[Rfam]
RNA sequence: AGGGUCAAGGCUAUAGCAAAAAUGCUUAUGAUGUGGCCUGUUGGAUUCCAGCGAAUCUGCAAAUUCUGCU
Numbered sequence: 001a002g003g004g005u006c007a008a009g010g011c012u013a014u015a016g017c018a019a020a021a022a023u024g025c026u027u028a029u030g031a032u033g034u035g036g037c038c039u040g041u042u043g044g045a046u047u048c049c050a051g052c053g054a055a056u057c058u059g060c061a062a063a064u065u066c067u068g069c070u
Stems, first nucleotide, its partner, number of pairs: 009038004015070004020065002022034003042059007